[Rfam]
RNA sequence: AACAGGAGGAAGCAAAUGCGAAGCAUUUUUUUCAUGCUUCCGACGAGCUGCCCUCGAACACAGUGAGGGGGCAUUACCUUGU
Dot-bracket structure: .......((((((.((((.....))))........))))))........(((.((..((...))..)).)))..........
RNA: GA-cis RNA
Organism: Schaedlerella arabinosiphila